The family of this 83-nucleotide RNA sequence from Alteribacter keqinensis is "pan motif". It is annotated as a cis-regulatory element. The family's consensus secondary structure is taken from published work.

RNA sequence: UGAAGAGAAUAAUCUCCAUCAUUCUAUCCGAAAACAUCUAAAAAAAGAAUCUGCCACGAUCCAUUACGGACGGGGACAGAAGG
Numbered sequence: 001u002g003a004a005g006a007g008a009a010u011a012a013u014c015u016c017c018a019u020c021a022u023u024c025u026a027u028c029c030g031a032a033a034a035c036a037u038c039u040a041a042a043a044a045a046a047g048a049a050u051c052u053g054c055c056a057c058g059a060u061c062c063a064u065u066a067c068g069g070a071c072g073g074g075g076a077c078a079g080a081a082g083g
Stems, first nucleotide, its partner, number of pairs: 001021003005016004051079003054075002057072002060070003